[Rfam]
The record is a 374-nucleotide RNA sequence from Sphingomicrobium lutaoense, which matches "Bacterial RNase P class A" in Rfam.
RNA sequence: CCAGGGGACCGGGCGACCGCGGCCCUGCCAGAAGGCAGGGGCGAGGAAAGUCCGGGCUCCACGGAAAAACGGUGCCGGGUAACGCCCGGCGGCUCCUUUAUCGGGAGUCAGGGACAGUGCCACAGAAAGCAUCCCGCCGGUCUUCGGGCCGGUCAGGGCGAACGGGUGCGGUAAGAGCGCACCGCGCGGACGGCAACGGACGCGGCACGGUAAACCCCACCGGGUGCAAGACCGAAUAGGGGCGGCAUAUGAGCUUUUCCGGCUCGUCGCCCGGGUUGGUUGCUUGACCCUGCUUGCAAGAGCAGGGCUAGAGGAAUGGUCGCCCAUCCCCUUCAUGGGGUGGACAGAACCCGGCUUACAGGUCCCCUGGCGCU
Numbered sequence: 001c002c003a004g005g006g007g008a009c010c011g012g013g014c015g016a017c018c019g020c021g022g023c024c025c026u027g028c029c030a031g032a033a034g035g036c037a038g039g040g041g042c043g044a045g046g047a048a049a050g051u052c053c054g055g056g057c058u059c060c061a062c063g064g065a066a067a068a069a070c071g072g073u074g075c076c077g078g079g080u081a082a083c084g085c086c087c088g089g090c091g092g093c094u095c096c097u098u099u100a101u102c103g104g105g106a107g108u109c110a111g112g113g114a115c116a117g118u119g120c121c122a123c124a125g126a127a128a129g130c131a132u133c134c135c136g137c138c139g140g141u142c143u144u145c146g147g148g149c150c151g152g153u154c155a156g157g158g159c160g161a162a163c164g165g166g167u168g169c170g171g172u173a174a175g176a177g178c179g180c181a182c183c184g185c186g187c188g189g190a191c192g193g194c195a196a197c198g199g200a201c202g203c204g205g206c207a208c209g210g211u212a213a214a215c216c217c218c219a220c221c222g223g224g225u226g227c228a229a230g231a232c233c234g235a236a237u238a239g240g241g242g243c244g245g246c247a248u249a250u251g252a253g254c255u256u257u258u259c260c261g262g263c264u265c266g267u268c269g270c271c272c273g274g275g276u277u278g279g280u281u282g283c284u285u286g287a288c289c290c291u292g293c294u295u296g297c298a299a300g301a302g303c304a305g306g307g308c309u310a311g312a313g314g315a316a317u318g319g320u321c322g323c324c325c326a327u328c329c330c331c332u333u334c335a336u337g338g339g340g341u342g343g344a345c346a347g348a349a350c351c352c353g354g355c356u357u358a359c360a361g362g363u364c365c366c367c368u369g370g371c372g373c374u
Base pairs, nucleotide, nucleotide: 001370002369003368004367005366006365007364008363009362010361011359012324013323014322015321016320017319018318020043021042023040024039025038026037027036028035048357049356050355052354053353054352055351056350057226059224060223067258068257070222071221072220073219074218075089076088077087078086079085090111091109092108093107094106095105096104097103112217113216117215118214119211120210121209134157135156136153137152138151139150140149141148142147165183166182167181168180169179170178184206185204186203187202188201191198192197230281231280232279233278240272241271242270243269244268245267251265252264253263254262255261288307289306290305291304292303293302294301295300
Notes
Rfam classes the family as a ribozyme. Ribonuclease P (RNase P) is a ubiquitous endoribonuclease, found in archaea, bacteria and eukarya as well as chloroplasts and mitochondria. Its best characterised activity is the generation of mature 5'-ends of tRNAs by cleaving the 5'-leader elements of precursor-tRNAs. Cellular RNase Ps are ribonucleoproteins. It scores 294 bits against the family's covariance model.